[Rfam]
RNA: Small nucleolar RNA SNORA43
Organism: Phyllostomus discolor
RNA sequence: GGUGCGGACACGCCAGCACCACAGACGCGGCUGCUGUGCUGCACCUGUGACGCCAGGGCAGAGAGGAAGUGGCUAUUUCUACGCUCAGUGCUCAGAACCGUGGGCACUAAGAAUGGUUUGUAGCCUGACAGUC
Numbered sequence: 001g002g003u004g005c006g007g008a009c010a011c012g013c014c015a016g017c018a019c020c021a022c023a024g025a026c027g028c029g030g031c032u033g034c035u036g037u038g039c040u041g042c043a044c045c046u047g048u049g050a051c052g053c054c055a056g057g058g059c060a061g062a063g064a065g066g067a068a069g070u071g072g073c074u075a076u077u078u079c080u081a082c083g084c085u086c087a088g089u090g091c092u093c094a095g096a097a098c099c100g101u102g103g104g105c106a107c108u109a110a111g112a113a114u115g116g117u118u119u120g121u122a123g124c125c126u127g128a129c130a131g132u133c
Stems, first nucleotide, its partner, number of pairs: 003060003006054002021048004071125003079116003084111002089106006